[Rfam]
RNA: FMN riboswitch aptamer (RFN element)
Organism: Metabacillus litoralis
RNA sequence: AUCAAUCUUCGGGGCAGGGUGAGAUUCCCGACCGGCGGUGAUGGAAAUAAUUUUUCAAAGUCCGCGAGCCUUUAUUAUUGGGCAGGAUCUGGUGUGAAUCCAGAACCGACAGUAUAGUCUGGAUGAGAGAAGAUGGAG
Number, nucleotide and partner (000 for none) at each position: 001a000002u000003c136004a000005a134006u133007c132008u131009u130010c129011g000012g000013g000014g000015c000016a000017g029018g028019g027020u000021g000022a000023g000024a000025u000026u000027c019028c018029c017030g000031a118032c117033c108034g107035g065036c064037g063038g062039u000040g000041a000042u000043g000044g000045a000046a000047a000048u000049a000050a000051u000052u000053u000054u000055u000056c000057a000058a000059a000060g106061u105062c038063c037064g036065c035066g000067a000068g083069c082070c081071u000072u000073u000074a000075u000076u000077a000078u000079u000080g000081g070082g069083c068084a000085g000086g000087a000088u104089c103090u102091g101092g100093u000094g000095u000096g000097a000098a000099u000100c092101c091102a090103g089104a088105a061106c060107c034108g033109a000110c121111a120112g119113u000114a000115u000116a000117g032118u031119c112120u111121g110122g000123a000124u000125g000126a000127g000128a000129g010130a009131a008132g007133a006134u005135g000136g003137a000138g000